[Rfam]
RNA sequence: AUGGCUUCACCUUUUGAACUUUUUUCAAAUGUUUCUUACAUUGUAAUUGGCAGUUGUUUGGAACUGUUUGAAGUGAAGCUAGAAAAUUGUUCCUCUCGCUAUCCAGUGUUUCGUUCUCAUGAUGCAUUUGGACGUUGGGGAACUACAUUU
Numbered sequence: 001a002u003g004g005c006u007u008c009a010c011c012u013u014u015u016g017a018a019c020u021u022u023u024u025u026c027a028a029a030u031g032u033u034u035c036u037u038a039c040a041u042u043g044u045a046a047u048u049g050g051c052a053g054u055u056g057u058u059u060g061g062a063a064c065u066g067u068u069u070g071a072a073g074u075g076a077a078g079c080u081a082g083a084a085a086a087u088u089g090u091u092c093c094u095c096u097c098g099c100u101a102u103c104c105a106g107u108g109u110u111u112c113g114u115u116c117u118c119a120u121g122a123u124g125c126a127u128u129u130g131g132a133c134g135u136u137g138g139g140g141a142a143c144u145a146c147a148u149u150u
Stems, first nucleotide, its partner, number of pairs: 002082001003080003008075002011073003016069002019066001031064005038057001041056001043054001089143007097134002102132005111122003
A member of the RNA family "Small nucleolar RNA snoR136" from Camellia sinensis, 150 nucleotides long. The family's RNA type in Rfam is H/ACA-box small nucleolar RNA. For this family Rfam cites "Mining small RNA sequencing data: a new approach to identify small nucleolar RNAs in Arabidopsis" (Chen and Wu, Nucleic Acids Res, 2009). The organism belongs to Camellia sinensis, within Eukaryota.